[Rfam]
Shown here is a 136-nucleotide sequence from Sulfobacillus harzensis, a member of the family "c-di-AMP riboswitch aptamer (ydaO/yuaA leader)". About the family: This family represents a conserved RNA structure found upstream of the ydaO and yuaA genes in Bacillus subtilis and related genes in other bacteria.
RNA sequence: AAUAUGAGCGAGCCGAAUUGUCAUGCUGUGACAACCGGGGGACCCAGCAAUUGGGGUGAGGCGCAAUCUGCGCGGGGCCGUCCCUCUCCAGGCCCUAACCCGUCAGCUAACUCCGGAGGCACUUCAACGACGAGAG
Numbered sequence: 001a002a003u004a005u006g007a008g009c010g011a012g013c014c015g016a017a018u019u020g021u022c023a024u025g026c027u028g029u030g031a032c033a034a035c036c037g038g039g040g041g042a043c044c045c046a047g048c049a050a051u052u053g054g055g056g057u058g059a060g061g062c063g064c065a066a067u068c069u070g071c072g073c074g075g076g077g078c079c080g081u082c083c084c085u086c087u088c089c090a091g092g093c094c095c096u097a098a099c100c101c102g103u104c105a106g107c108u109a110a111c112u113c114c115g116g117a118g119g120c121a122c123u124u125c126a127a128c129g130a131c132g133a134g135a136g
Stems, first nucleotide, its partner, number of pairs: 012120003018034007035116006045053002054101003062072004075095004